[Rfam]
RNA sequence: UGACGGAAGGACACCACAAGGAGUGGAGUGUGCGGGUUAAUUUGACUCAACGCGGGAAAGCUUACCGGGGCAGGCGGCGGCCGGAGACCAGGCGGUCUAUGGAGCGGCAUGGGAGGCUGCCGCGCGUGGUGCAUGGCCGUUUUUAACACGUGGGGUGACUUGUCUGGUCAAGUCUGAUAACGCGUGAGACCUAGGGCUGCGGCGACGGCACCUGUAAGGGUGAGGAGGCACUAGUCGAUAACAGGUCUGUGAUGCCCGUAGAUGUCCCGGGCUCCACGCGCACUACAUUAGGGGAGGGUCUGUGAAACUGCGCUCCCCUGCGGUUGGGAUUGACGCUUGUAAAUGCGUCAUGAACACGGAAUUCCUAGUAGCGUGGUGUCAUCAACACCAGGCGAAUGGGUCCCUGUUCUUUGUACACACCGCCCGUCGUUAUCUAAGAUGGGUGUGUAAAUGAAGCUAGUCACCUAGAAGAAUUUGCACGCCUAAAUCGGAUACAAGUCGUAACAAGGUUGCUGUAGGUGAACCAGCAGCAGGAUCAUAA
Dot-bracket structure: (((((.(((((((..((..((((((.((((((((((....((((........))))........(((((((....((((((......(((...................)))...))))))...((.((((..((((((((....((.((((((....)))...(((......)))...))).)).....((((.((....))..(..(((((....)))))..).....)))).....))).)))...).))))))).....)))))))...)).)))))))).)...((((((..................))))))......(....((((((........))))))....).....))))).....((.(((((.......))))).))......))...)))))))))).))....(..((.(..(((((.(..(((((((((((((....(((......)))....)))))))))))))..).)))))...).))...)....(((((((.((....)).)))))))........
This 541-nucleotide part of an RNA from Amblyospora sp. belongs to the Rfam family "Microsporidia small subunit ribosomal RNA".
The literature on the family includes a 2001 paper in Science by Yusupov et al., "Crystal structure of the ribosome at 5.5 A resolution".
The family's consensus secondary structure is taken from published work.
Its Rfam clan is "SSU clan".